[Rfam]
RNA sequence: GGAUAUUUGAGAGGAUCGGUCCCUAGUACGAGAGGACCGGGAUGGACUGACCUCUAGUGUGCCGGCUGUCGUGCCAACGGCAGGCCGGGUAGCUAUGUCGGGACGGGAGAACUGCUGAAAGCAUCUAAGCGGGAAACCCACCUCAAGAUAAGAUAUCCCGCCGCGCAAGCGGCCAGAAGACCCCUGGUAGACGACCAGGUUGAUAGGCUGGGCAUGUAAGGCCUGCAAGGGUUUGAGUGUACCAGUACUAAUCGGUCGAGCG
Numbered sequence: 001g002g003a004u005a006u007u008u009g010a011g012a013g014g015a016u017c018g019g020u021c022c023c024u025a026g027u028a029c030g031a032g033a034g035g036a037c038c039g040g041g042a043u044g045g046a047c048u049g050a051c052c053u054c055u056a057g058u059g060u061g062c063c064g065g066c067u068g069u070c071g072u073g074c075c076a077a078c079g080g081c082a083g084g085c086c087g088g089g090u091a092g093c094u095a096u097g098u099c100g101g102g103a104c105g106g107g108a109g110a111a112c113u114g115c116u117g118a119a120a121g122c123a124u125c126u127a128a129g130c131g132g133g134a135a136a137c138c139c140a141c142c143u144c145a146a147g148a149u150a151a152g153a154u155a156u157c158c159c160g161c162c163g164c165g166c167a168a169g170c171g172g173c174c175a176g177a178a179g180a181c182c183c184c185u186g187g188u189a190g191a192c193g194a195c196c197a198g199g200u201u202g203a204u205a206g207g208c209u210g211g212g213c214a215u216g217u218a219a220g221g222c223c224u225g226c227a228a229g230g231g232u233u234u235g236a237g238u239g240u241a242c243c244a245g246u247a248c249u250a251a252u253c254g255g256u257c258g259a260g261c262g
Base pairs, nucleotide, nucleotide: 001158002157003156004155005154006153007152008151011144012143013142014141017045019043020042021041022040023039047101048100049099050098051097055095056094057093062088063087064086065085066084067082068081069080070079071078072077105139106138107137112132113131114130115129116128161172162171163170179257180256181255182254183199184198185197186196187195204250205249206248207246208245209244210243211242212240213239214238220233221232222231223230224229
Dot-bracket structure: ((((((((..((((..(.(((((...............))))).).(((((...(((....(((((((((((....)))))).)))))....))).)))))...(((....(((((...........)))))....))).))))......))))))))..(((......)))......(((((((((.......)))))....(((((((((((.....(((((....)))))....))).))))).)))...)))).....
Bacterial large subunit ribosomal RNA: a 262-nucleotide part of an RNA from Leptospirillum sp. Group II '5-way CG'. The family's consensus secondary structure is taken from published work. The organism belongs to Leptospirillum sp. Group II, within Bacteria. It is one of the family's seed sequences.